[Rfam]
Nucleotides: 158
Base pairs, nucleotide, nucleotide: 003156004155005154006153007152008151009149010148016028017027018026032106033105034048035047036046037045043104044103052081053080054079055078086102087101088100089099090098108140109139110138
Number, partner (000 for none) and nucleotide at each position: 001000u002000a003156c004155g005154u006153g007152c008151u009149c010148c011000g012000g013000g014000g015000u016028c017027g018026g019000u020000g021000a022000a023000a024000g025000u026018c027017c028016g029000a030000a031000c032106c033105g034048g035047c036046g037045g038000u039000u040000a041000u042000a043104g044103u045037c046036c047035g048034c049000g050000a051000c052081c053080c054079g055078c056000g057000c058000c059000u060000u061000u062000c063000g064000a065000a066000g067000a068000a069000u070000c071000g072000g073000a074000a075000g076000u077000a078055g079054c080053g081052g082000u083000u084000g085000a086102c087101u088100c089099g090098g091000u092000g093000a094000a095000a096000u097000u098090c099089c100088g101087a102086g103044a104043c105033c106032g107000a108140c109139g110138g111000u112000a113000a114000u115000g116000a117000g118000g119000c120000u121000c122000g123000a124000a125000a126000g127000a128000g129000c130000u131000u132000c133000u134000c135000a136000g137000u138110c139109c140108g141000g142000a143000u144000g145000a146000g147000a148010g149009g150000u151008a152007g153006c154005a155004c156003g157000c158000g
The record is a 158-nucleotide RNA sequence from Frigoribacterium sp. CG_9.8, which matches "FMN riboswitch aptamer (RFN element)" in Rfam. NCBI's taxonomy places the organism under Bacteria, Actinomycetota, Actinomycetes, Microbacteriaceae, Frigoribacterium. It scores 82 bits against the family's covariance model. Its family is annotated with FMN binding in the Gene Ontology.